[Rfam]
RNA sequence: GCGUGGGUCGGUCCGCUGCGCUCUGGAAACAGUGGGCCGGGGGAGAUCGUCGUCUCAUUCCCCGCGGACGGCGGUCAUGGCUCGGGAGGUGACGUGCGCCUCCCGGGCCACA
Numbered sequence: 001g002c003g004u005g006g007g008u009c010g011g012u013c014c015g016c017u018g019c020g021c022u023c024u025g026g027a028a029a030c031a032g033u034g035g036g037c038c039g040g041g042g043g044a045g046a047u048c049g050u051c052g053u054c055u056c057a058u059u060c061c062c063c064g065c066g067g068a069c070g071g072c073g074g075u076c077a078u079g080g081c082u083c084g085g086g087a088g089g090u091g092a093c094g095u096g097c098g099c100c101u102c103c104c105g106g107g108c109c110a111c112a
Base pairs, nucleotide, nucleotide: 001111006078007076009039010038011037012036013035014034015033016032017031018030047074048073049072050071051070052069053068054067055066079109080108081107082106083105084104085103086102087101088100089099090098091097
The record is a 112-nucleotide RNA from Streptomyces aidingensis, which matches "Streptomyces RNA 4115" in Rfam.
On this family, see Vockenhuber et al., RNA Biol 2011: "Deep sequencing-based identification of small non-coding RNAs in Streptomyces coelicolor".
Rfam classes the family as a small RNA.
The pairing is the family consensus, mapped onto this sequence.
Identified by deep sequencing of transcriptome at the end of exponential growth phase.